[Rfam]
RNA sequence: UGAAUCAUUUGGCAAACCUGCAGAAAUGCAGGGGCGCAAAGCAUGAAGCCUUACGUGCGCGGAUCGAAAGCGCAGCACAAGGUGGUUCGGCUGCAAUU
Numbered sequence: 001u002g003a004a005u006c007a008u009u010u011g012g013c014a015a016a017c018c019u020g021c022a023g024a025a026a027u028g029c030a031g032g033g034g035c036g037c038a039a040a041g042c043a044u045g046a047a048g049c050c051u052u053a054c055g056u057g058c059g060c061g062g063a064u065c066g067a068a069a070g071c072g073c074a075g076c077a078c079a080a081g082g083u084g085g086u087u088c089g090g091c092u093g094c095a096a097u098u
Base pairs, nucleotide, nucleotide: 012037013036017032018031019030020029021028022027040092041091042090045088046087047086048083049082050081055078056077057076058075
The family of this 98-nucleotide sequence from Faecalibacterium sp. An121 is "c-di-GMP-I riboswitch aptamer". Rfam links the family to the GO term cyclic-di-GMP binding. Pairs were carried over by alignment from the consensus structure, which is taken from published work. Clan: c-di-GMP_I riboswitch clan. About the family: GEMM was predicted in a large-scale screen for bacterial structured RNA regulatory elements.